Rfam assigns this 102-nucleotide RNA sequence from Evansella caseinilytica to the family "c-di-GMP-I riboswitch aptamer".
Rfam describes the family as follows. GEMM was predicted in a large-scale screen for bacterial structured RNA regulatory elements. Genes associated with GEMM are involved in a diverse array of functions, including chemotaxis regulation, signal transduction, secretion and chitin.
Its family is annotated with cyclic-di-GMP binding in the Gene Ontology.
It scores 68 bits against the family's covariance model.
RNA sequence: UCUAGUCAAGGGCAUAGCUAUUGAAAGAUAGUGGCGCAAAACUACGGAUCUAAGGGCAAAUCGAUCUUAUAAACGAUUGCCUAUGACAGCCGGGUUACCUAG
Numbered sequence: 001u002c003u004a005g006u007c008a009a010g011g012g013c014a015u016a017g018c019u020a021u022u023g024a025a026a027g028a029u030a031g032u033g034g035c036g037c038a039a040a041a042c043u044a045c046g047g048a049u050c051u052a053a054g055g056g057c058a059a060a061u062c063g064a065u066c067u068u069a070u071a072a073a074c075g076a077u078u079g080c081c082u083a084u085g086a087c088a089g090c091c092g093g094g095u096u097a098c099c100u101a102g
Base pairs, nucleotide, nucleotide: 012037013036017032018031019030020029021028022027040096041095042094043093045092046091047090049086050085055081056080057079058078